[Rfam]
RNA sequence: AAUACCCUGCUGUGUGCGUGAUCAGCCUUGAAGUUUUGAGCCAACACCAUUAGAAAGGGAGCCCGGACUCUGAAUGUGGCUUGUAUGCCUCUCAUGCAGAGGAAACAAAAAGCAUUCAGGAGGGCACCCACCUGUUGAGAGCAGGUUCAAAAAACUUUUGGGGAUCACGGCAUGAGUGGGGUUUUU
Numbered sequence: 001a002a003u004a005c006c007c008u009g010c011u012g013u014g015u016g017c018g019u020g021a022u023c024a025g026c027c028u029u030g031a032a033g034u035u036u037u038g039a040g041c042c043a044a045c046a047c048c049a050u051u052a053g054a055a056a057g058g059g060a061g062c063c064c065g066g067a068c069u070c071u072g073a074a075u076g077u078g079g080c081u082u083g084u085a086u087g088c089c090u091c092u093c094a095u096g097c098a099g100a101g102g103a104a105a106c107a108a109a110a111a112g113c114a115u116u117c118a119g120g121a122g123g124g125c126a127c128c129c130a131c132c133u134g135u136u137g138a139g140a141g142c143a144g145g146u147u148c149a150a151a152a153a154a155c156u157u158u159u160g161g162g163g164a165u166c167a168c169g170g171c172a173u174g175a176g177u178g179g180g181g182u183u184u185u186u
Stems, first nucleotide, its partner, number of pairs: 002184001004182008012173004017169003033155003036151001037149006057129003061125004068119001071118007083106002088102005